[Rfam]
RNA sequence: UGUCCUGGUUAGUUUUGCUGGUUUGCAGUCAGCGUUCUUAUCGGUGCUGUGCAAAUCCAUGCAAAACUGAUCGUAACA
Number, nucleotide and partner (000 for none) at each position: 001u000002g000003u076004c000005c000006u073007g072008g071009u070010u069011a068012g067013u066014u065015u064016u063017g062018c061019u000020g058021g057022u055023u054024u053025g052026c051027a050028g000029u000030c000031a048032g047033c046034g000035u000036u000037c000038u000039u000040a000041u000042c000043g000044g000045u000046g033047c032048u031049g000050u027051g026052c025053a024054a023055a022056u000057c021058c020059a000060u000061g018062c017063a016064a015065a014066a013067c012068u011069g010070a009071u008072c007073g006074u000075a000076a003077c000078a000
The family of this 78-nucleotide RNA from Sinocyclocheilus grahami is "mir-19 microRNA precursor family". Gene Ontology terms of the family: RISC complex and miRNA-mediated post-transcriptional gene silencing. Clan: mir-19 clan.